[Rfam]
RNA: Fluoride riboswitch aptamer (crcB RNA motif)
Nucleotides: 062
Stems, first nucleotide, its partner, number of pairs: 010025004016053006033043003
Number, partner (000 for none) and nucleotide at each position: 001000c002000g003000c004000c005000g006000c007000a008000u009000g010025g011024g012023c013022g014000a015000u016053g017052g018051a019050g020049u021048c022013c023012g024011c025010c026000u027000g028000c029000g030000a031000c032000c033043g034042c035041c036000c037000u038000c039000a040000g041035g042034g043033c044000u045000g046000a047000u048021g049020a050019c051018u052017c053016c054000u055000a056000c057000g058000a059000a060000g061000g062000u